[Rfam]
RNA sequence: UUGCCGAUGCCAAGCUGCCCGACAUGCAAGCGGGAUGGGAGCAAGGGAUAUCGAACACACUUGCAGGGCUCGCCGGUUUGAAUAUGGUCUAUGAAGCAG
Numbered sequence: 001u002u003g004c005c006g007a008u009g010c011c012a013a014g015c016u017g018c019c020c021g022a023c024a025u026g027c028a029a030g031c032g033g034g035a036u037g038g039g040a041g042c043a044a045g046g047g048a049u050a051u052c053g054a055a056c057a058c059a060c061u062u063g064c065a066g067g068g069c070u071c072g073c074c075g076g077u078u079u080g081a082a083u084a085u086g087g088u089c090u091a092u093g094a095a096g097c098a099g
Base pairs, nucleotide, nucleotide: 003011032061033060076097078095079094
Dot-bracket structure: ..(.......)....................((..........................))..............(.((..............)).)..
Background: This 99-nucleotide RNA sequence from Thalassobacter sp. 16PALIMAR09 belongs to the Rfam family "Pyrrolysine insertion sequence mttB". Rfam classes the family as a cis-regulatory element. The base pairs follow the family's consensus structure, which was predicted with CMfinder. It scores 45 bits against the family's covariance model. The source organism's lineage runs through Bacteria, Pseudomonadota, Rhodobacterales, Roseobacteraceae and Thalassobacter.